[Rfam]
The family of this 90-nucleotide sequence from Thermanaeromonas toyohensis is "c-di-GMP-I riboswitch aptamer". Rfam describes the family as follows. GEMM was predicted in a large-scale screen for bacterial structured RNA regulatory elements. Genes associated with GEMM are involved in a diverse array of functions, including chemotaxis regulation, signal transduction, secretion and chitin.
RNA sequence: UCACGAUAAAGGCAAACAGCUCGAAAGGGCGGGGCGCAAAGCCAUGGGCCUAAGAUCCAGGUAAAGGAUUAUGGCUGCCAGGCUGCCGUG
Numbered sequence: 001u002c003a004c005g006a007u008a009a010a011g012g013c014a015a016a017c018a019g020c021u022c023g024a025a026a027g028g029g030c031g032g033g034g035c036g037c038a039a040a041g042c043c044a045u046g047g048g049c050c051u052a053a054g055a056u057c058c059a060g061g062u063a064a065a066g067g068a069u070u071a072u073g074g075c076u077g078c079c080a081g082g083c084u085g086c087c088g089u090g
Stems, first nucleotide, its partner, number of pairs: 012037002017032001019030004040084004045080003048075003055069004